[Rfam]
RNA sequence: UGGGCUUCAUCACUUUAAUCAAGACCUUAUAUUGCUUGUCUAUUUAGAGGUCUUGUGUUUGAAGCAAUAAAAAUUGCUGCCUCGCUAUCCGCUGCAAACUCUUCUGUUUGCAUUUGGACGUUGGUGAGCUACAUUA
Numbered sequence: 001u002g003g004g005c006u007u008c009a010u011c012a013c014u015u016u017a018a019u020c021a022a023g024a025c026c027u028u029a030u031a032u033u034g035c036u037u038g039u040c041u042a043u044u045u046a047g048a049g050g051u052c053u054u055g056u057g058u059u060u061g062a063a064g065c066a067a068u069a070a071a072a073a074u075u076g077c078u079g080c081c082u083c084g085c086u087a088u089c090c091g092c093u094g095c096a097a098a099c100u101c102u103u104c105u106g107u108u109u110g111c112a113u114u115u116g117g118a119c120g121u122u123g124g125u126g127a128g129c130u131a132c133a134u135u136a
Stems, first nucleotide, its partner, number of pairs: 001069002004065002008061002012058002015055001021054008031045001076129003079125003083120002088118004097108003

Small nucleolar RNA snoR136: a 136-nucleotide RNA from Musa balbisiana. Rfam links the family to the GO terms nucleolus and RNA processing.